[Rfam]
RNA sequence: GGUUUCCAUUGGUGCAAACCCAAUCGCCUCAAUUUGAGAUGAGAAGUAAUUCCCCAUUGGUAGCGAAUAGUUAUCCAUUAAGCGGGAGAAAGAGUA
Numbered sequence: 001g002g003u004u005u006c007c008a009u010u011g012g013u014g015c016a017a018a019c020c021c022a023a024u025c026g027c028c029u030c031a032a033u034u035u036g037a038g039a040u041g042a043g044a045a046g047u048a049a050u051u052c053c054c055c056a057u058u059g060g061u062a063g064c065g066a067a068u069a070g071u072u073a074u075c076c077a078u079u080a081a082g083c084g085g086g087a088g089a090a091a092g093a094g095u096a
Base pairs, nucleotide, nucleotide: 009023010022011021012020053086054085055084056078057077059075060074061073062072063071064070